[Rfam]
RNA sequence: AGAACACACAUUAAUUAUCCUUGGGUUCAUGGGAUAAACAAAAAUCUUGCAAAAACAAGUUAGCAUACCUUAAAAUGGUUCUAGCAUAAUUAUUAAUCUAUGGCUCUGAUACCAAUUGAUGGAAAAACCCG
Numbered sequence: 001a002g003a004a005c006a007c008a009c010a011u012u013a014a015u016u017a018u019c020c021u022u023g024g025g026u027u028c029a030u031g032g033g034a035u036a037a038a039c040a041a042a043a044a045u046c047u048u049g050c051a052a053a054a055a056c057a058a059g060u061u062a063g064c065a066u067a068c069c070u071u072a073a074a075a076u077g078g079u080u081c082u083a084g085c086a087u088a089a090u091u092a093u094u095a096a097u098c099u100a101u102g103g104c105u106c107u108g109a110u111a112c113c114a115a116u117u118g119a120u121g122g123a124a125a126a127a128c129c130c131g
Stems, first nucleotide, its partner, number of pairs: 009121008022108004027103007048086002053080002056077002060073004
RNA: MIR845_2 microRNA precursor family
Organism: Vitis rotundifolia